Shown here is a 68-nucleotide sequence from Trypanosoma brucei, a member of the family "Trypanosomatid snoRNA TB11Cs5H2". The family's consensus secondary structure was predicted with WAR. A reference for the family is Myslyuk et al. (2008), "Psiscan: a computational approach to identify H/ACA-like and AGA-like non-coding RNA in trypanosomatid genomes", BMC Bioinformatics. Rfam links the family to the GO terms nucleolus and RNA processing. Taxonomically the source falls in Trypanosoma brucei gambiense (Eukaryota, Trypanosomatida, Trypanosomatidae, Trypanozoon). It is annotated as an H/ACA-box small nucleolar RNA.

RNA sequence: AAGCAGCAUCAGUACAGCGGUGGUAUCGCUAAGGCACCAUGAUGCUUUCCGCUGGCGAUGUGGCGAGA
Numbered sequence: 001a002a003g004c005a006g007c008a009u010c011a012g013u014a015c016a017g018c019g020g021u022g023g024u025a026u027c028g029c030u031a032a033g034g035c036a037c038c039a040u041g042a043u044g045c046u047u048u049c050c051g052c053u054g055g056c057g058a059u060g061u062g063g064c065g066a067g068a
Stems, first nucleotide, its partner, number of pairs: 003064002006061004015054005022046006
Dot-bracket structure: ..((.((((.....(((((..((((((.............))))))...)))))...)))).))....